RNA sequence: CCCUUUAAAGAGCAAAAUCAGGGUGACCUGAUGGCGCAAAAUCACGGGUCCCAUGAAAGGAUAGCCGGAUUACUGAU
Numbered sequence: 001c002c003c004u005u006u007a008a009a010g011a012g013c014a015a016a017a018u019c020a021g022g023g024u025g026a027c028c029u030g031a032u033g034g035c036g037c038a039a040a041a042u043c044a045c046g047g048g049u050c051c052c053a054u055g056a057a058a059g060g061a062u063a064g065c066c067g068g069a070u071u072a073c074u075g076a077u
Stems, first nucleotide, its partner, number of pairs: 012037002017032006040071004045067003048062003
Source information:
The family of this 77-nucleotide RNA from Trichlorobacter lovleyi is "c-di-GMP-I riboswitch aptamer".